[Rfam]
Iron response element II: a 31-nucleotide RNA sequence from Cottoperca gobio. Rfam's curators write: IRE, TFRC, SLC40A1, SDHB, SLC11A2, CDC42BPA, ACO2, ALAS2_H.SAPIENS, CDC14A, EPAS1, ALAS2, qoxD, Hao1, NDUFS1, transferrin, Aconitate. Rfam links the family to the GO term response to iron ion.
RNA sequence: UCAAUAUCAGUUACAGUGUUCACUAUAUUUA
Numbered sequence: 001u002c003a004a005u006a007u008c009a010g011u012u013a014c015a016g017u018g019u020u021c022a023c024u025a026u027a028u029u030u031a
Stems, first nucleotide, its partner, number of pairs: 001031001003029005009024003013020001014018001
For this family Rfam cites "Identification of a novel iron-responsive element in murine and human erythroid delta-aminolevulinic acid synthase mRNA" (Dandekar et al., EMBO J, 1991). A search with the family's covariance model found it, with a score of 33 bits. The source organism's lineage runs through Eukaryota, Neopterygii, Neoteleostei, Percomorphaceae and Cottoperca. By type it is a cis-regulatory element.